[Rfam]
RNA sequence: ACGACCAACGGAGAUGACAUUCCUCCAUUAACCGCCCUUUCAGGCUGAUGAUGUCUACGUAACC
Number, nucleotide and partner (000 for none) at each position: 001a000002c000003g000004a000005c000006c000007a000008a000009c000010g026011g025012a024013g023014a000015u000016g055017a054018c053019a052020u051021u050022c000023c013024u012025c011026c010027a000028u000029u000030a000031a000032c000033c000034g045035c044036c043037c000038u000039u000040u000041c000042a000043g036044g035045c034046u000047g000048a000049u000050g021051a020052u019053g018054u017055c016056u000057a000058c000059g000060u000061a000062a000063c000064c000
Rfam assigns this 64-nucleotide RNA sequence from Chania multitudinisentens to the family "Fluoride riboswitch aptamer (crcB RNA motif)".
Gene Ontology terms of the family: response to fluoride and positive regulation of gene expression.
The match comes from Rfam's covariance-model search (54 bits).